[Rfam]
RNA sequence: ACGACGCCCUGCGCGUCCGCGGGCUCAACGGGCCCCGACGGCGGGGGUGGUGCCGUGUCGGCGCAGCACCACCCCCUGC
Numbered sequence: 001a002c003g004a005c006g007c008c009c010u011g012c013g014c015g016u017c018c019g020c021g022g023g024c025u026c027a028a029c030g031g032g033c034c035c036c037g038a039c040g041g042c043g044g045g046g047g048u049g050g051u052g053c054c055g056u057g058u059c060g061g062c063g064c065a066g067c068a069c070c071a072c073c074c075c076c077u078g079c
Base pairs, nucleotide, nucleotide: 003017004016005015006014007013020037021036022035023033024032025031041079042078043076044075045074046073047072048071049070050069051068052067053066055064056063057062